Description: Rfam assigns this 79-nucleotide RNA from Anaeromassilibacillus sp. An172 to the family "S10-Clostridia ribosomal protein leader". It is annotated as a cis-regulatory leader. NCBI's taxonomy places the organism under Bacteria, Bacillota, Eubacteriales, Acutalibacteraceae, Anaeromassilibacillus. For this family Rfam cites "Discovery of 20 novel ribosomal leader candidates in bacteria and archaea" (Eckert and Weinberg, BMC Microbiol, 2020).

[Rfam]
RNA sequence: UGAUAUGCGAUGAAGCGGGAGGUUGCGGCAGUUAGCCGGUUUUUCCGUGGAGUAUGUCCGAUUUUAAACCGGGCGAUAA
Number, nucleotide and partner (000 for none) at each position: 001u000002g000003a000004u000005a000006u000007g000008c000009g000010a000011u000012g000013a000014a000015g048016c047017g046018g000019g045020a044021g043022g042023u000024u000025g000026c038027g037028g036029c035030a000031g000032u000033u000034a000035g029036c028037c027038g026039g000040u000041u000042u022043u021044u020045c019046c017047g016048u015049g000050g000051a000052g000053u000054a000055u078056g077057u076058c075059c000060g000061a000062u073063u072064u071065u000066a000067a000068a000069c000070c000071g064072g063073g062074c000075g058076a057077u056078a055079a000